Shown here is a 75-nucleotide RNA sequence from Cnephaeus nilssonii, a member of the family "mir-9223 microRNA precursor family".
RNA sequence: GUCAGUUCUCGGGUAACGCACCCCGGAACUGGGCUCCCUCCUCUCUGGUUCCGUGUGUGUCACCCAAGAACCGCA
Numbered sequence: 001g002u003c004a005g006u007u008c009u010c011g012g013g014u015a016a017c018g019c020a021c022c023c024c025g026g027a028a029c030u031g032g033g034c035u036c037c038c039u040c041c042u043c044u045c046u047g048g049u050u051c052c053g054u055g056u057g058u059g060u061c062a063c064c065c066a067a068g069a070a071c072c073g074c075a
Stems, first nucleotide, its partner, number of pairs: 003073001005071005011065004016060002019057003023053001025052009
Lineage of the source: Eukaryota > Bilateria > Dipnotetrapodomorpha > Boreoeutheria > Cnephaeus.
The family's consensus secondary structure was predicted with RNAalifold.